[Rfam]
RNA sequence: AAAUAAAUACUGUUUAAACCGUAGACAGUAGGUAUCUUUUAUAGGAUUUAAAUAUGCCUACCGAGGUUUAGGUUAGCCUAAAAUAGUCUAGUUUCUAACUAGAUUUAUUAUACUAGGGUUGCAACUAAAACCUCUCCGUGUCUACGGAGAGGUUUUUUAGUUUAUAGU
Numbered sequence: 001a002a003a004u005a006a007a008u009a010c011u012g013u014u015u016a017a018a019c020c021g022u023a024g025a026c027a028g029u030a031g032g033u034a035u036c037u038u039u040u041a042u043a044g045g046a047u048u049u050a051a052a053u054a055u056g057c058c059u060a061c062c063g064a065g066g067u068u069u070a071g072g073u074u075a076g077c078c079u080a081a082a083a084u085a086g087u088c089u090a091g092u093u094u095c096u097a098a099c100u101a102g103a104u105u106u107a108u109u110a111u112a113c114u115a116g117g118g119u120u121g122c123a124a125c126u127a128a129a130a131c132c133u134c135u136c137c138g139u140g141u142c143u144a145c146g147g148a149g150a151g152g153u154u155u156u157u158u159a160g161u162u163u164a165u166a167g168u
Base pairs, nucleotide, nucleotide: 028061029060030059031058032057033056034047035046036045130153131152132151133150134149135148136147137146138145139144
Shown here is a 168-nucleotide sequence from Thermohalobacter berrensis, a member of the family "Ribosomal protein L10 leader". Lineage of the source: Bacteria > Bacillota > Tissierellales > Thermohalobacteraceae > Thermohalobacter. Rfam links the family to the GO term regulation of gene expression. It scores 74 bits against the family's covariance model.